[Rfam]
RNA sequence: CGGAGGUAUAAGAAGGUGAAACUAUUGUAGUGUAUAGUUUUCACUGAUACCCACCUCCAAAAGCAAAAGUGGUAGUGUGAACCACCUGAUCUCCAGAGAUAGGUUUUGAGUGCUCUGCACCUACCCACAUUGC
Numbered sequence: 001c002g003g004a005g006g007u008a009u010a011a012g013a014a015g016g017u018g019a020a021a022c023u024a025u026u027g028u029a030g031u032g033u034a035u036a037g038u039u040u041u042c043a044c045u046g047a048u049a050c051c052c053a054c055c056u057c058c059a060a061a062a063g064c065a066a067a068a069g070u071g072g073u074a075g076u077g078u079g080a081a082c083c084a085c086c087u088g089a090u091c092u093c094c095a096g097a098g099a100u101a102g103g104u105u106u107u108g109a110g111u112g113c114u115c116u117g118c119a120c121c122u123a124c125c126c127a128c129a130u131u132g133c
Stems, first nucleotide, its partner, number of pairs: 002058005015045004019040007071125003077120001079118001081116001087112002090109002
RNA: Small nucleolar RNA SNORA47